[Rfam]
RNA sequence: AGAAAAGUAACCGCCGCCCCGCGCAGGGGCGACGCUAAUAGACCGUUACGAUCACAGGCAAUUCACGUCAAAACGCGAGCGAACCGCCCAAAACCCCCAAAAAAACCACCC
Numbered sequence: 001a002g003a004a005a006a007g008u009a010a011c012c013g014c015c016g017c018c019c020c021g022c023g024c025a026g027g028g029g030c031g032a033c034g035c036u037a038a039u040a041g042a043c044c045g046u047u048a049c050g051a052u053c054a055c056a057g058g059c060a061a062u063u064c065a066c067g068u069c070a071a072a073a074c075g076c077g078a079g080c081g082a083a084c085c086g087c088c089c090a091a092a093a094c095c096c097c098c099a100a101a102a103a104a105a106c107c108a109c110c111c
Base pairs, nucleotide, nucleotide: 011079012077013076014075015031016030017029018028019027020026058069061068062067